[Rfam]
RNA sequence: GUCGUAUAAAGAUGUAUUAGAUGCAAGACAAUCUAACAUUUCCCUUUACGGCAUUGUAAUCAAAUUAGAAGUUCAAAUAACAACAAUUGUUGCAUGGUUAAGAAUCGAAACGAUUUGAGUUUGAAUGGAAUAGGUUAACCGUAUGACCUUGUGUUGAAAAACACUAAACAUAAUCUUGAAUGACGAUUUAUAAAAUUUCGUUAUUUCGAGUUACGGCGGG
Numbered sequence: 001g002u003c004g005u006a007u008a009a010a011g012a013u014g015u016a017u018u019a020g021a022u023g024c025a026a027g028a029c030a031a032u033c034u035a036a037c038a039u040u041u042c043c044c045u046u047u048a049c050g051g052c053a054u055u056g057u058a059a060u061c062a063a064a065u066u067a068g069a070a071g072u073u074c075a076a077a078u079a080a081c082a083a084c085a086a087u088u089g090u091u092g093c094a095u096g097g098u099u100a101a102g103a104a105u106c107g108a109a110a111c112g113a114u115u116u117g118a119g120u121u122u123g124a125a126u127g128g129a130a131u132a133g134g135u136u137a138a139c140c141g142u143a144u145g146a147c148c149u150u151g152u153g154u155u156g157a158a159a160a161a162c163a164c165u166a167a168a169c170a171u172a173a174u175c176u177u178g179a180a181u182g183a184c185g186a187u188u189u190a191u192a193a194a195a196u197u198u199c200g201u202u203a204u205u206u207c208g209a210g211u212u213a214c215g216g217c218g219g220g
Base pairs, nucleotide, nucleotide: 001052002051003050004049005048006047008045010041011040012039013038014037015036018035019034020033021032022031023029071126072125073124074123075122076121077120078119085115086114087113088112089111090110091109096106097105099103132149133148134147135146136145139216140215141214142213143212144170151164152163153162154161155160175210176209177208178207179206180205181203182202183201184200185199
IS605-orfB-I RNA: a 220-nucleotide RNA. The family's consensus secondary structure is taken from published work. Rfam's curators put it in the seed alignment.